[Rfam]
RNA sequence: GGAAACUGACUUCAUAUGGUGGCUUGGAGUGUUUCUGUCAUUUAUCUAGCACCAUUUGAAAUCAGUGCUCU
Numbered sequence: 001g002g003a004a005a006c007u008g009a010c011u012u013c014a015u016a017u018g019g020u021g022g023c024u025u026g027g028a029g030u031g032u033u034u035c036u037g038u039c040a041u042u043u044a045u046c047u048a049g050c051a052c053c054a055u056u057u058g059a060a061a062u063c064a065g066u067g068c069u070c071u
Stems, first nucleotide, its partner, number of pairs: 001071003005066005011060004016055006025048004
Shown here is a 71-nucleotide RNA sequence from Ameiurus melas, a member of the family "mir-29 microRNA precursor family". Gene Ontology terms of the family: RISC complex and gene silencing by miRNA. NCBI's taxonomy places the organism under Eukaryota, Deuterostomia, Actinopterygii, Siluroidei, Ameiurus. Rfam 15.1 lists 3,328 matches to the family in 787 species. Rfam describes the family as follows. This family represents the microRNA (miRNA) precursors mir-29. The family's consensus secondary structure was predicted with PFOLD.